[Rfam]
RNA sequence: AACGUGUGGUGGUGGCACUUCCCAUAGCGGGUAGUGUUUCGGCUUUGUAUUGUCUUCAGAAACAUUAAAACCCGCCAAUUGAGCGGGUUUUUUUAU
Numbered sequence: 001a002a003c004g005u006g007u008g009g010u011g012g013u014g015g016c017a018c019u020u021c022c023c024a025u026a027g028c029g030g031g032u033a034g035u036g037u038u039u040c041g042g043c044u045u046u047g048u049a050u051u052g053u054c055u056u057c058a059g060a061a062a063c064a065u066u067a068a069a070a071c072c073c074g075c076c077a078a079u080u081g082a083g084c085g086g087g088u089u090u091u092u093u094u095a096u
Stems, first nucleotide, its partner, number of pairs: 009043002012040001015037005021031003069089007076081001